[Rfam]
RNA sequence: UCACAAUACUUACUCCCCUUAAACCAAGACCUAUAGGGAGGAUAAAUUACGUCUUUCAUAUCCAGUAGUGAGGGAUUACUGGAAAUAAGUUUCGCU
Numbered sequence: 001u002c003a004c005a006a007u008a009c010u011u012a013c014u015c016c017c018c019u020u021a022a023a024c025c026a027a028g029a030c031c032u033a034u035a036g037g038g039a040g041g042a043u044a045a046a047u048u049a050c051g052u053c054u055u056u057c058a059u060a061u062c063c064a065g066u067a068g069u070g071a072g073g074g075a076u077u078a079c080u081g082g083a084a085a086u087a088a089g090u091u092u093c094g095c096u
Stems, first nucleotide, its partner, number of pairs: 013040005020035002026055005061083007
Dot-bracket structure: ............(((((..((....[[[[[...)))))))..........]]]]].....(((((((.........))))))).............
RNA: PhotoRC-II RNA